[Rfam]
RNA sequence: AGUCGAAGGGCCCAGCAGUGAAGCGGUUAUCUCCAGUAGUUGAGGCUUCUCUAACACUCAUAAAACCUUCGAAGAGAAACCCUAAUCCGUAUAGUUAUGAUGCCUGAAUUAUUAUUGGUUUCUGGCAUCUGAAACUGCGGUUACAUUUUG
Numbered sequence: 001a002g003u004c005g006a007a008g009g010g011c012c013c014a015g016c017a018g019u020g021a022a023g024c025g026g027u028u029a030u031c032u033c034c035a036g037u038a039g040u041u042g043a044g045g046c047u048u049c050u051c052u053a054a055c056a057c058u059c060a061u062a063a064a065a066c067c068u069u070c071g072a073a074g075a076g077a078a079a080c081c082c083u084a085a086u087c088c089g090u091a092u093a094g095u096u097a098u099g100a101u102g103c104c105u106g107a108a109u110u111a112u113u114a115u116u117g118g119u120u121u122c123u124g125g126c127a128u129c130u131g132a133a134a135c136u137g138c139g140g141u142u143a144c145a146u147u148u149u150g
Base pairs, nucleotide, nucleotide: 003072004071005070006069007068008067009066011020013018025051026050031044032043033042035040087140088139089138090137091136099129100128102126103125104124106122107121108120

Shown here is a 150-nucleotide sequence from Rhynchospora breviuscula, a member of the family "Small nucleolar RNA snoR145". The literature on the family includes a 2009 paper in Nucleic Acids Res by Chen and Wu, "Mining small RNA sequencing data: a new approach to identify small nucleolar RNAs in Arabidopsis". By type it is an H/ACA-box small nucleolar RNA. Rfam links the family to the GO terms RNA processing and nucleolus.